Description
This 43-nucleotide sequence from Leptidea sinapis belongs to the Rfam family "Coronavirus 3' stem-loop II-like motif (s2m)". The literature on the family includes a 1998 paper in J Gen Virol by Jonassen et al., "A common RNA motif in the 3' end of the genomes of astroviruses, avian infectious bronchitis virus and an equine rhinovirus". The match comes from Rfam's covariance-model search (55 bits). The source organism's lineage runs through Eukaryota, Panarthropoda, Altocrustacea, Eumetabola and Leptidea. Its Rfam clan is "Coronavirus 3' UTR".
RNA sequence: AAUUUCCGAGGCCACGCCGAGUAGGAUCGAGGGUACAGAUUUU
Numbered sequence: 001a002a003u004u005u006c007c008g009a010g011g012c013c014a015c016g017c018c019g020a021g022u023a024g025g026a027u028c029g030a031g032g033g034u035a036c037a038g039a040u041u042u043u
Base pairs, nucleotide, nucleotide: 002042005039006038011034012033013032015029016028017025018024
Description
Pairs were carried over by alignment from the consensus structure, which is taken from published work.